[Rfam]
The record is a 74-nucleotide sequence from Octodon degus, which matches "Small nucleolar RNA R38" in Rfam.

RNA sequence: UUGAGCUGAGGAUGAUUAAAGUUAUCCCUGUCUGAAAUGACAUCUGUGUGGAGUUCUGACUUACUGAGGCUCAA
Dot-bracket structure: (((((((............................................................)))))))